[Rfam]
The record is a 73-nucleotide RNA sequence from Salinisphaera hydrothermalis, which matches "tRNA" in Rfam. A search with the family's covariance model found it, with a score of 70 bits. The family's consensus secondary structure is taken from published work.
RNA sequence: GCCCGCGUAGCUCAGCUGGUAGAGCAGCUGUCUUGUAAACAGCAGGUCAUCGGUUCGACUCCGGUCGCGGGCU
Numbered sequence: 001g002c003c004c005g006c007g008u009a010g011c012u013c014a015g016c017u018g019g020u021a022g023a024g025c026a027g028c029u030g031u032c033u034u035g036u037a038a039a040c041a042g043c044a045g046g047u048c049a050u051c052g053g054u055u056c057g058a059c060u061c062c063g064g065u066c067g068c069g070g071g072c073u
Stems, first nucleotide, its partner, number of pairs: 001072007010025004027043005049065005